The family of this 59-nucleotide RNA sequence from Monodelphis domestica is "mir-7398 microRNA precursor family". Rfam 15.1 lists 132 matches to the family in 4 species. Taxonomically the source falls in Monodelphis (Eukaryota, Eumetazoa, Teleostomi, Didelphinae).
Nucleotides: 059
Base pairs, nucleotide, nucleotide: 002056003055004054006053007052008051009050010049011048012047013046014045015044016043017042021038022037023036
Number, partner (000 for none) and nucleotide at each position: 001000u002056g003055u004054g005000u006053a007052g008051a009050g010049g011048c012047g013046a014045g015044a016043a017042a018000g019000a020000u021038a022037c023036c024000g025000u026000g027000u028000u029000g030000u031000g032000u033000c034000u035000u036023g037022g038021u039000a040000a041000a042017u043016u044015u045014c046013u047012c048011g049010c050009c051008u052007u053006u054004c055003a056002c057000a058000a059000u